This 53-nucleotide RNA from Mesorhizobium sp. YM1C-6-2 belongs to the Rfam family "serC leader". On this family, see Corbino et al., Genome Biol 2005: "Evidence for a second class of S-adenosylmethionine riboswitches and other regulatory RNA motifs in alpha-proteobacteria". This family is a putative regulatory RNA structure that is found upstream of the serC-serA operon in some alpha-proteobacteria.

[Rfam]
RNA sequence: CCGUGGGACACUCCUCCCCAACGAGGAGCUUUCUAUCUGGAAGGAUAGCCACG
Numbered sequence: 001c002c003g004u005g006g007g008a009c010a011c012u013c014c015u016c017c018c019c020a021a022c023g024a025g026g027a028g029c030u031u032u033c034u035a036u037c038u039g040g041a042a043g044g045a046u047a048g049c050c051a052c053g
Stems, first nucleotide, its partner, number of pairs: 011028006033048006